[Rfam]
RNA sequence: GGACGGGCACCGCCUAAUCGCCUGACGGCGCCUGCAGAGGUGCUCGACGGCGAGCCGGGGACCCACCGCAGUCCUGGGGUGAGUUCUCCUGUAGGGCCGGUUCGCCGGUGCGCAGGGGAUAGGGCCAGUCUUCCCAGCCCGAACCCGUCAGCUAACUCGGUAGGCGGUUGCAGAGGAAGAAA
Dot-bracket structure: ..........((((...(((((..........................)))))((((((....((.........))(((.....((((((((...................))))))))..((((...........))))...))).........)))))).))))................

This 182-nucleotide RNA sequence from Blastococcus mobilis belongs to the Rfam family "c-di-AMP riboswitch aptamer (ydaO/yuaA leader)". The match comes from Rfam's covariance-model search (68 bits).